[Rfam]
RNA sequence: CCAACCCCGUCAGGAGAGAGUUUCCCCGGAGGAAGCCGCCGAAGGCGCAGGAUUGCUGAUUGCAGCGGUCUGAACGCUCAGGCAAAAGGACUGACCAGCGUUG
Numbered sequence: 001c002c003a004a005c006c007c008c009g010u011c012a013g014g015a016g017a018g019a020g021u022u023u024c025c026c027c028g029g030a031g032g033a034a035g036c037c038g039c040c041g042a043a044g045g046c047g048c049a050g051g052a053u054u055g056c057u058g059a060u061u062g063c064a065g066c067g068g069u070c071u072g073a074a075c076g077c078u079c080a081g082g083c084a085a086a087a088g089g090a091c092u093g094a095c096c097a098g099c100g101u102u103g
Stems, first nucleotide, its partner, number of pairs: 006098001009095005020036004038083003041079002045077003051070008
RNA: Glycine riboswitch aptamer
Organism: Rhodoferax sp.